[Rfam]
RNA sequence: GGCUGGUAGGAUUCCUGGCAGAGUGAUUUGGAAAUGUAUGGUACAAAAUCACAUUGCCAGGGAUUUCCAAUCAGUC
Dot-bracket structure: ((.(((..(((((((((((((.(((((((................))))))).)))))))))))..))..))).))
Numbered sequence: 001g002g003c004u005g006g007u008a009g010g011a012u013u014c015c016u017g018g019c020a021g022a023g024u025g026a027u028u029u030g031g032a033a034a035u036g037u038a039u040g041g042u043a044c045a046a047a048a049u050c051a052c053a054u055u056g057c058c059a060g061g062g063a064u065u066u067c068c069a070a071u072c073a074g075u076c
Stems, first nucleotide, its partner, number of pairs: 001076002004073003009068002011064011023052007
Shown here is a 76-nucleotide RNA from Xenopus tropicalis, a member of the family "mir-23 microRNA precursor family".